RNA: MIR6217 microRNA precursor family
RNA sequence: UGGCCGUACAAUAAGUUAUUAUGUGGCCACUUUGAGUUACGAUAAUUACUAUACUAAUUUACAAGAUUAUGAUAACUUCCUCAUAAGUGAUUUACAUUAUGGUAAGUAUCAUCUUGAAUUAUAGUAACUCAUAUAUCGUAAAUGUGUAUUGUUAUUAUCGUAAAUUGGUACAAACAUUAUCGUAAAUCAAGGGAGCCAUAGAAUAAGUUAUUCUGUGGCCA
Numbered sequence: 001u002g003g004c005c006g007u008a009c010a011a012u013a014a015g016u017u018a019u020u021a022u023g024u025g026g027c028c029a030c031u032u033u034g035a036g037u038u039a040c041g042a043u044a045a046u047u048a049c050u051a052u053a054c055u056a057a058u059u060u061a062c063a064a065g066a067u068u069a070u071g072a073u074a075a076c077u078u079c080c081u082c083a084u085a086a087g088u089g090a091u092u093u094a095c096a097u098u099a100u101g102g103u104a105a106g107u108a109u110c111a112u113c114u115u116g117a118a119u120u121a122u123a124g125u126a127a128c129u130c131a132u133a134u135a136u137c138g139u140a141a142a143u144g145u146g147u148a149u150u151g152u153u154a155u156u157a158u159c160g161u162a163a164a165u166u167g168g169u170a171c172a173a174a175c176a177u178u179a180u181c182g183u184a185a186a187u188c189a190a191g192g193g194a195g196c197c198a199u200a201g202a203a204u205a206a207g208u209u210a211u212u213c214u215g216u217g218g219c220c221a
Base pairs, nucleotide, nucleotide: 001221002220003219004218005217006216007215008214010212011211012210013209014208016206017205018204019203020202022200023199024198025197026196027195030192031191032190033189037185038184039183040182041181042180043179044178045177046176050172052170053169054168055167056166057165058164059163060162061161062160065159066158067157069155070154071153074149081140087136088135089134092131093126094125095124097116102110